[Rfam]
RNA sequence: CUGGAGGACUAAGAAAGUGGGGUCAGUGAAAGUGUAUUGACUCCGCUGAUACUCUCCUCCGACAGUGACCGGUGGAAGAACAAGGCCUGCCUGCGAGAUGGAGUCAGGACCUACUUCCUCUACCCACAAAG
Numbered sequence: 001c002u003g004g005a006g007g008a009c010u011a012a013g014a015a016a017g018u019g020g021g022g023u024c025a026g027u028g029a030a031a032g033u034g035u036a037u038u039g040a041c042u043c044c045g046c047u048g049a050u051a052c053u054c055u056c057c058u059c060c061g062a063c064a065g066u067g068a069c070c071g072g073u074g075g076a077a078g079a080a081c082a083a084g085g086c087c088u089g090c091c092u093g094c095g096a097g098a099u100g101g102a103g104u105c106a107g108g109a110c111c112u113a114c115u116u117c118c119u120c121u122a123c124c125c126a127c128a129a130a131g
Stems, first nucleotide, its partner, number of pairs: 003060006010051002018045007026035003071124006078117001083112003086108004

The record is a 131-nucleotide RNA sequence from Eudromia elegans, which matches "Small Cajal body specific RNA 15" in Rfam. Pairs were carried over by alignment from the consensus structure, which was predicted with RNAfold. Rfam describes the family as follows. scaRNAs are a specific class of small nuclear RNAs which localise to the Cajal bodies and guide the modification of RNA polymerase II transcribed spliceosomal RNAs U1, U2, U4, U5 and U12. ACA45 belongs to the H/ACA box class of guide RNAs as it has the predicted hairpin-hinge-hairpin-tail structure, the conserved H/ACA-box motifs and is found associated with GAR1. The match comes from Rfam's covariance-model search (82 bits). Rfam 15.1 lists 635 matches to the family in 528 species.